[Rfam]
RNA sequence: CAUACUGUUUGGCAAACCUGCUGAAAGGCCGGGACGCAAAACUAUGGGUCUAAGAACACCUAGCGUGUUUACGAUUGCCAGGUCGCCUUC
Numbered sequence: 001c002a003u004a005c006u007g008u009u010u011g012g013c014a015a016a017c018c019u020g021c022u023g024a025a026a027g028g029c030c031g032g033g034a035c036g037c038a039a040a041a042c043u044a045u046g047g048g049u050c051u052a053a054g055a056a057c058a059c060c061u062a063g064c065g066u067g068u069u070u071a072c073g074a075u076u077g078c079c080a081g082g083u084c085g086c087c088u089u090c
Stems, first nucleotide, its partner, number of pairs: 012037002017032002020029003041083003045080003048075003055069004